[Rfam]
Source information
A member of the RNA family "Small nucleolar RNA SNORA55" from Catharus ustulatus, 119 nucleotides long. By type it is an H/ACA-box small nucleolar RNA. About the family: ACA55 is a member of the H/ACA class of snoRNA that guide the sites of modification of uridines to pseudouridines. NCBI's taxonomy places the organism under Eukaryota, Dipnotetrapodomorpha, Telluraves, Australaves, Catharus.
RNA sequence: GCACCUGCUGCUUCGCUGUUCCUUGCAGGUCUGGGGGCUGUUAGUGCUGCAGCACAGCACUGAGAAUCCAGAUGGGUUCUCCACGGGUUUGGGACUCAUCUCUACACCACUCAAAAAUC
Dot-bracket structure: ((((........((.(((..((.....))..))).))......)))).........(.(.((.......((((((((...(((......))).))))))))......)).)).......